[Rfam]
The record is a 263-nucleotide sequence from Helianthus annuus, which matches "RNase MRP" in Rfam.
The match comes from Rfam's covariance-model search (82 bits).
Pairs were carried over by alignment from the consensus structure, which is taken from published work.
The source organism's lineage runs through Eukaryota, Viridiplantae, eudicotyledons, asterids and Helianthus.
RNA sequence: AGACCAACGGACGAUGUGAUUGGGCUUCGAACCACUCAGUGGUUUAUGCUCAGGAAAGUCCCCGGGCCCAUUACCGCAGAGAUGCGGGCCUGGAAACAGGUUAUGCUUCGAAGCAAAUGAAUCAUGUUGGGCCAGAAAUGGUUCGACGGGCUGAGACCAGUGUGUGGAGCCUUAUGGAUUCUAGCUCGAAGUUAAUUUGGCCGAUGUCAGUCAUUCACAUGGUCCUUUGUGACUAACUGAACGGGGCUUAUGAUCCGUUGGUC
Number, nucleotide and partner (000 for none) at each position: 001a000002g263003a262004c261005c260006a259007a258008c257009g256010g255011a254012c000013g000014a220015u219016g218017u217018g216019a215020u000021u000022g051023g050024g049025c048026u000027u000028c000029g045030a044031a043032c042033c041034a040035c039036u000037c000038a000039g035040u034041g033042g032043u031044u030045u029046a000047u000048g025049c024050u023051c022052a000053g000054g000055a000056a249057a248058g247059u000060c246061c245062c244063c243064g000065g000066g000067c000068c000069c000070a000071u000072u000073a000074c000075c086076g085077c084078a083079g000080a000081g000082a000083u078084g077085c076086g075087g102088g101089c100090c099091u098092g097093g000094a000095a000096a000097c092098a091099g090100g089101u088102u087103a000104u194105g193106c000107u000108u189109c188110g187111a000112a186113g185114c184115a000116a000117a000118u000119g181120a180121a179122u000123c000124a000125u000126g000127u000128u174129g173130g172131g171132c000133c000134a000135g000136a000137a000138a000139u000140g000141g000142u000143u000144c000145g000146a000147c000148g000149g000150g000151c000152u000153g000154a000155g000156a000157c167158c166159a165160g000161u000162g000163u000164g000165u159166g158167g157168a000169g000170c000171c131172u130173u129174a128175u000176g000177g000178a000179u121180u120181c119182u000183a000184g114185c113186u112187c110188g109189a108190a000191g000192u000193u105194a104195a000196u000197u000198u000199g000200g000201c000202c000203g000204a000205u000206g000207u000208c000209a000210g000211u000212c000213a000214u000215u019216c018217a017218c016219a015220u014221g000222g233223u232224c231225c000226u000227u000228u000229g000230u000231g224232a223233c222234u000235a000236a000237c000238u000239g000240a000241a000242c000243g063244g062245g061246g060247c058248u057249u056250a000251u000252g000253a000254u011255c010256c009257g008258u007259u006260g005261g004262u003263c002